[Rfam]
RNA: small nucleolar RNA snR35
Organism: Lentinula guzmanii
RNA sequence: UUCGUGCGGCAGCCCGGCCAUAAUCUUCCCCAUGUUGCUCAUGACUGCUCAACCUUUUCACAAGGUCCCUCAAGUGGUCGUUUGAGUGUCAGGCCGUGCUCUGAACAAAUGGACGUCUAAGUACCCACUGUCGUGCUUUCUCUACUGUUGGAUGCACGACGGGUCGGUGGUCUCGUACAAUU
Numbered sequence: 001u002u003c004g005u006g007c008g009g010c011a012g013c014c015c016g017g018c019c020a021u022a023a024u025c026u027u028c029c030c031c032a033u034g035u036u037g038c039u040c041a042u043g044a045c046u047g048c049u050c051a052a053c054c055u056u057u058u059c060a061c062a063a064g065g066u067c068c069c070u071c072a073a074g075u076g077g078u079c080g081u082u083u084g085a086g087u088g089u090c091a092g093g094c095c096g097u098g099c100u101c102u103g104a105a106c107a108a109a110u111g112g113a114c115g116u117c118u119a120a121g122u123a124c125c126c127a128c129u130g131u132c133g134u135g136c137u138u139u140c141u142c143u144a145c146u147g148u149u150g151g152a153u154g155c156a157c158g159a160c161g162g163g164u165c166g167g168u169g170g171u172c173u174c175g176u177a178c179a180a181u182u
Base pairs, nucleotide, nucleotide: 023100025098037087038086039085040084041083045077046076047075048074109176110175111174112172113171114170128162129161130160131159132158133157134156135155136154138152139151